[Rfam]
RNA sequence: ACAGUACAAACUGAGCAGGCGAUGAACUUUUGUAUAAGUUCGUGGGGCUGGGCCGACAAGGCAGCAGGUGCAUAAAACCUGUGGGACAGUA
Numbered sequence: 001a002c003a004g005u006a007c008a009a010a011c012u013g014a015g016c017a018g019g020c021g022a023u024g025a026a027c028u029u030u031u032g033u034a035u036a037a038g039u040u041c042g043u044g045g046g047g048c049u050g051g052g053c054c055g056a057c058a059a060g061g062c063a064g065c066a067g068g069u070g071c072a073u074a075a076a077a078c079c080u081g082u083g084g085g086a087c088a089g090u091a
Stems, first nucleotide, its partner, number of pairs: 010090004016085001018049003022043006052062003064082006

NiCo (Nickel/Cobalt) riboswitch aptamer: a 91-nucleotide RNA sequence from Parasporobacterium paucivorans. Pairs were carried over by alignment from the consensus structure, which is taken from published work. Clan: NiCo_riboswitches.